[Rfam]
RNA sequence: UCGCGCCGUGCGGGAGAGUCCCGGUCUCAGCCGAGUCCGGGCGCCGAAGGAGCAGCACCUCCCCGUCAAUCUCUCAGGCAACCGGACCGUGCGGCUUUC
Number, nucleotide and partner (000 for none) at each position: 001u000002c000003g000004c000005g000006c094007c093008g092009u091010g090011c089012g088013g087014g000015a000016g000017a000018g000019u000020c041021c040022c039023g038024g000025u000026c000027u000028c000029a000030g000031c000032c000033g000034a000035g000036u000037c000038c023039g022040g021041g020042c000043g079044c078045c077046g075047a074048a000049g000050g073051a072052g071053c000054a000055g000056c000057a066058c065059c000060u000061c000062c000063c000064c000065g058066u057067c000068a000069a000070u000071c052072u051073c050074u047075c046076a000077g045078g044079c043080a000081a000082c000083c000084g000085g000086a000087c013088c012089g011090u010091g009092c008093g007094g006095c000096u000097u000098u000099c000
A member of the RNA family "Glycine riboswitch aptamer" from Nocardia farcinica, 99 nucleotides long. Its family is annotated with glycine biosynthetic process in the Gene Ontology. Taxonomically the source falls in Nocardia farcinica (Bacteria, Bacillati, Actinomycetota, Nocardia). The base pairs follow the family's consensus structure.